The family of this 103-nucleotide RNA sequence from Ruthenibacterium lactatiformans is "azaaromatic riboswitch aptamer (yjdF RNA)". NCBI's taxonomy places the organism under Bacteria, Bacillati, Clostridia, Eubacteriales, Ruthenibacterium.

Nucleotides: 103
Stems, first nucleotide, its partner, number of pairs: 005094004010089002022041006042059006070079003
Number, partner (000 for none) and nucleotide at each position: 001000a002000a003000c004000g005094g006093c007092a008091g009000a010089g011088a012000u013000a014000a015000a016000a017000a018000c019000a020000c021000g022041g023040c024039g025038c026037g027036g028000u029000c030000g031000g032000u033000a034000g035000u036027c037026c038025g039024c040023g041022c042059g043058c044057g045056g046055g047054g048000u049000g050000c051000a052000u053000g054047c055046c056045c057044u058043g059042u060000c061000a062000g063000u064000a065000a066000c067000c068000u069000u070079c071078c072077c073000u074000c075000c076000c077072g078071g079070g080000u081000c082000g083000u084000c085000c086000g087000u088011u089010c090000c091008c092007u093006g094005c095000a096000a097000g098000g099000a100000u101000u102000u103000u